[Rfam]
RNA sequence: GGUAUAGCGGGCGUGGUAGUUCAGGAACAUGUGCCCGCGGGCCUGGUCGAUGGUGUGGAACAGCGGGUUCCAGUCGAACAGCGCCCGGCGCGAGGCGGGCAACAUGCUGGCCACGAACAUCUUGCCGGAGGCGAUCAUGUUGGCGCGCUG
Numbered sequence: 001g002g003u004a005u006a007g008c009g010g011g012c013g014u015g016g017u018a019g020u021u022c023a024g025g026a027a028c029a030u031g032u033g034c035c036c037g038c039g040g041g042c043c044u045g046g047u048c049g050a051u052g053g054u055g056u057g058g059a060a061c062a063g064c065g066g067g068u069u070c071c072a073g074u075c076g077a078a079c080a081g082c083g084c085c086c087g088g089c090g091c092g093a094g095g096c097g098g099g100c101a102a103c104a105u106g107c108u109g110g111c112c113a114c115g116a117a118c119a120u121c122u123u124g125c126c127g128g129a130g131g132c133g134a135u136c137a138u139g140u141u142g143g144c145g146c147g148c149u150g
Base pairs, nucleotide, nucleotide: 001030003029005027008024010022011021035053036052037051038049039048040047061150062149063148064147065146067079068078069077070076083144084143086142087141088140089139090138092136096131099126100124101123102122104120105119108115109114

Rfam assigns this 150-nucleotide sequence from Rhodobacter sp. SGA-6-6 to the family "Ruegeria cis2 sRNA". The family's RNA type in Rfam is small RNA. Rfam links the family to the GO term regulation of gene expression. NCBI's taxonomy places the organism under Bacteria, Pseudomonadota, Alphaproteobacteria, Rhodobacterales, Rhodobacter. A search with the family's covariance model found it, with a score of 75 bits.